[Rfam]
Nucleotides: 354
Base pairs, nucleotide, nucleotide: 001350002349003348004347005346006345007344008343009342010341011339012319013318014317015316016315017314018313020038021037022036023035024034025033026032043337044336045335047334048333049332050331051330052221053220054219055218059253060252061251062250065216066215067214068213069083070082071081072080073079084098085096086095087094088093099212100211104210105209106206107205108204122153123152125148126147129144130143131142132141133140134139161179162178163177164176165175166174181201182199183198184197185196186195187194188193225273226272227271228270235264236263237262238261239260240259244258245257246256247255248254283302284301286299287298288297289296290295
Number, partner (000 for none) and nucleotide at each position: 001350g002349a003348a004347g005346c006345g007344g008343g009342c010341c011339g012319g013318a014317c015316g016315g017314c018313c019000g020038c021037g022036c023035c024034c025033c026032c027000u028000c029000u030000c031000c032026g033025g034024g035023g036022g037021u038020g039000a040000g041000g042000a043337a044336a045335g046000u047334c048333c049332g050331g051330g052221c053220u054219c055218c056000a057000u058000a059253g060252g061251g062250c063000a064000a065216g066215a067214u068213g069083c070082c071081g072080g073079c074000u075000a076000a077000c078000g079073g080072c081071c082070g083069g084098g085096c086095g087094g088093a089000g090000c091000g092000a093088u094087c095086c096085g097000a098084c099212g100211g101000a102000a103000a104210g105209u106206g107205c108204c109000g110000c111000a112000g113000a114000a115000a116000a117000g118000a119000a120000g121000a122153c123152u124000c125148c126147c127000a128000c129144u130143g131142g132141c133140c134139c135000g136000c137000a138000a139134g140133g141132g142131u143130u144129a145000a146000g147126g148125g149000a150000a151000a152123a153122g154000c155000u156000g157000a158000a159000a160000c161179g162178g163177u164176g165175g166174u167000g168000u169000a170000a171000g172000a173000g174166a175165c176164c177163a178162c179161c180000a181201g182199c183198a184197c185196c186195c187194c188193g189000g190000c191000a192000a193188c194187g195186g196185g197184g198183u199182g200000g201181c202000u203000u204108g205107g206106u207000a208000a209105a210104c211100c212099c213068c214067a215066u216065c217000c218055g219054g220053a221052g222000c223000a224000a225273g226272c227271g228270c229000a230000a231000a232000u233000a234000g235264g236263a237262a238261c239260g240259c241000c242000a243000u244258g245257g246256g247255u248254u249000g250062g251061c252060c253059c254248g255247a256246c257245c258244c259240g260239c261238g262237u263236u264235c265000g266000g267000g268000u269000u270228g271227c272226g273225c274000g275000c276000g277000a278000g279000a280000g281000a282000a283302g284301g285000a286299c287298c288297g289296c290295g291000g292000c293000g294000a295290c296289g297288c298287g299286g300000c301284c302283u303000c304000g305000a306000g307000a308000u309000a310000a311000a312000u313018g314017g315016u316015c317014g318013u319012c320000u321000a322000u323000u324000a325000c326000a327000g328000a329000a330051c331050c332049c333048g334047g335045c336044u337043u338000a339011c340000a341010g342009g343008c344007c345006c346005g347004c348003u349002u350001c351000g352000c353000a354000c
Annotation:
Shown here is a 354-nucleotide sequence from a Coriobacteriaceae bacterium, a member of the family "Bacterial RNase P class A". It scores 285 bits against the family's covariance model. NCBI's taxonomy places the organism under Bacteria, Bacillati, Actinomycetota, Coriobacteriia, Coriobacteriaceae.